[Rfam]
RNA: mir-312 microRNA precursor family
RNA sequence: GGUGCGUCUCUAGUGCAACUCUUGGUUUUUUAUACAAGUAUUGCACUUGAGACGGCC
Numbered sequence: 001g002g003u004g005c006g007u008c009u010c011u012a013g014u015g016c017a018a019c020u021c022u023u024g025g026u027u028u029u030u031u032a033u034a035c036a037a038g039u040a041u042u043g044c045a046c047u048u049g050a051g052a053c054g055g056c057c
Stems, first nucleotide, its partner, number of pairs: 001057003005054004010049001012047002015044004021038003